Notes
Rfam assigns this 75-nucleotide RNA sequence from Marinobacterium nitratireducens to the family "c-di-GMP-I-GGC riboswitch aptamer".
RNA sequence: CAUGAUCAAGCCACACCCGCAGUGAUGCGGGGCCGGAAAGCCACGGAUCUCCCUGAGAUGGCCGGGUUGCCUUGA
Numbered sequence: 001c002a003u004g005a006u007c008a009a010g011c012c013a014c015a016c017c018c019g020c021a022g023u024g025a026u027g028c029g030g031g032g033c034c035g036g037a038a039a040g041c042c043a044c045g046g047a048u049c050u051c052c053c054u055g056a057g058a059u060g061g062c063c064g065g066g067u068u069g070c071c072u073u074g075a
Base pairs, nucleotide, nucleotide: 004071011036012035016031017030018029019028020027021026034061039068040067041066042065044064045063046062047059048058049057

Background:
The match comes from Rfam's covariance-model search (62 bits). Lineage of the source: Bacteria > Pseudomonadati > Oceanospirillales > Oceanospirillaceae > Marinobacterium. The base pairs follow the family's consensus structure, which is taken from published work.